[Rfam]
RNA sequence: CUAAGGAGCAAUAAACCCUUUCUUGUUUUAUCAAGAGUGGUUAUUGCUCCUUUAU
Numbered sequence: 001c002u003a004a005g006g007a008g009c010a011a012u013a014a015a016c017c018c019u020u021u022c023u024u025g026u027u028u029u030a031u032c033a034a035g036a037g038u039g040g041u042u043a044u045u046g047c048u049c050c051u052u053u054a055u
Stems, first nucleotide, its partner, number of pairs: 003052011020037006
The family of this 55-nucleotide RNA sequence from Premna microphylla is "Plastid-psbA-4 3UTR RNA". The organism belongs to Premna, within Eukaryota. Rfam describes the family as follows. Plastid psbA-4 is a non-coding RNA (ncRNA) present in plastids.